[Rfam]
Overview
mir-290 microRNA precursor family: a 69-nucleotide sequence from Nannospalax galili. On this family, see Houbaviy et al., Dev Cell 2003: "Embryonic stem cell-specific MicroRNAs". Taxonomically the source falls in Nannospalax (Eukaryota, Bilateria, Vertebrata, Spalacinae).

RNA sequence: GUGGCACUCAAACUGCGUGGGCACUUUUUUGUGCUCUGAAGAAAAGUGCCGCCAGGUUUUGAGUGUUAC
Numbered sequence: 001g002u003g004g005c006a007c008u009c010a011a012a013c014u015g016c017g018u019g020g021g022c023a024c025u026u027u028u029u030u031g032u033g034c035u036c037u038g039a040a041g042a043a044a045a046g047u048g049c050c051g052c053c054a055g056g057u058u059u060u061g062a063g064u065g066u067u068a069c
Stems, first nucleotide, its partner, number of pairs: 004066009017053001020050006027044003
Its Rfam clan is "mir-290 clan".
The family has 31 seed sequences and 565 matches in Rfam 15.1.
A search with the family's covariance model found it, with a score of 60 bits.